This 33-nucleotide RNA sequence from Pongo abelii belongs to the Rfam family "XIST RNA A repeat". It is annotated as a small RNA. The sequence is in the family's curated seed alignment. The literature on the family includes a 2011 paper in RNA by Duszczyk et al., "The Xist RNA A-repeat comprises a novel AUCG tetraloop fold and a platform for multimerization".
RNA sequence: UUGCCCAUCGGGGCUGCGGAUACCUGGUUUUAU
Numbered sequence: 001u002u003g004c005c006c007a008u009c010g011g012g013g014c015u016g017c018g019g020a021u022a023c024c025u026g027g028u029u030u031u032a033u
Base pairs, nucleotide, nucleotide: 003014004013005012006011017026018025019024